[Rfam]
Rfam assigns this 78-nucleotide RNA from Laticauda laticaudata to the family "Mammalian CPEB3 ribozyme". The match comes from Rfam's covariance-model search (74 bits). The source organism's lineage runs through Eukaryota, Chordata, Squamata, Toxicofera and Laticauda. The family's consensus secondary structure is taken from published work. The mammalian CPEB3 ribozyme is a self cleaving RNA located in the second intron of the CPEB3 gene which belongs to a family of genes regulating messenger RNA polyadenylation.
RNA sequence: UUGGAUGCCAAGGGGGCCAUAGAAGGAGCGUUCACGUCGCAGUCCCUGUCAGGUAUCUGUUUACCUGCGAAUCCUUCU
Dot-bracket structure: ............[[[[[...((((((((((.......))).]]]]]...((((((......))))))....)))))))